[Rfam]
mir-9/mir-79 microRNA precursor family: a 78-nucleotide sequence from Apolygus lucorum. Rfam 15.1 lists 5,647 matches to the family in 934 species.

RNA sequence: CCGUUCAUUUCUUUGGUUAUCUAGCUGUAUGAGUGUAACGUCUUUCUCAUAAAGCUAGGUUACCGAAGGUACUAAUGG
Dot-bracket structure: (((((..(.((((((((.((((((((.((((((............)))))).)))))))).)))))))).)..)))))
Pairs were carried over by alignment from the consensus structure, which was predicted with RNAalifold. Taxonomically the source falls in Apolygus (Eukaryota, Eumetazoa, Bilateria, Euheteroptera).